[Rfam]
RNA sequence: CGACGGCGGGUACAAUCAGCAGCAGCAAUAGACCAGGGACGAUCAUCCCCAACGCCCAAAUGCCCCAGUCGAGAUGUACACCCAAAAUUUUAUCGGCGAAAUCCGCGGUAAGAAGAUUCGGAGCCAUCGCCGUAAUGAAGAUGAAGCUACUGACCUUCAUGACAAAGUAAAUGUUAGACAUCAAAUAGGAACCCGCUUUCUUGGAUGUUUCACCGGGUUCCGAGCCCAGGGCUUUCACCACCGAAAGAAUAAU
Numbered sequence: 001c002g003a004c005g006g007c008g009g010g011u012a013c014a015a016u017c018a019g020c021a022g023c024a025g026c027a028a029u030a031g032a033c034c035a036g037g038g039a040c041g042a043u044c045a046u047c048c049c050c051a052a053c054g055c056c057c058a059a060a061u062g063c064c065c066c067a068g069u070c071g072a073g074a075u076g077u078a079c080a081c082c083c084a085a086a087a088u089u090u091u092a093u094c095g096g097c098g099a100a101a102u103c104c105g106c107g108g109u110a111a112g113a114a115g116a117u118u119c120g121g122a123g124c125c126a127u128c129g130c131c132g133u134a135a136u137g138a139a140g141a142u143g144a145a146g147c148u149a150c151u152g153a154c155c156u157u158c159a160u161g162a163c164a165a166a167g168u169a170a171a172u173g174u175u176a177g178a179c180a181u182c183a184a185a186u187a188g189g190a191a192c193c194c195g196c197u198u199u200c201u202u203g204g205a206u207g208u209u210u211c212a213c214c215g216g217g218u219u220c221c222g223a224g225c226c227c228a229g230g231g232c233u234u235u236c237a238c239c240a241c242c243g244a245a246a247g248a249a250u251a252a253u
Stems, first nucleotide, its partner, number of pairs: 005064004019029001036043001049054001066247001069244002073128004081123001082121002085118002090112002094108001096106002129150001132147002167238002170235002174229002177226001181223002189220007

This 253-nucleotide RNA sequence from Brenneria goodwinii belongs to the Rfam family "Yersinia sRNA 283". From the family's description: Identified in transcriptional profiling by RNA seq. It is annotated as an antisense RNA. A reference for the family is Nuss et al. (2015), "Transcriptomic profiling of Yersinia pseudotuberculosis reveals reprogramming of the Crp regulon by temperature and uncovers Crp as a master regulator of small RNAs", PLoS Genet. The match comes from Rfam's covariance-model search (188 bits).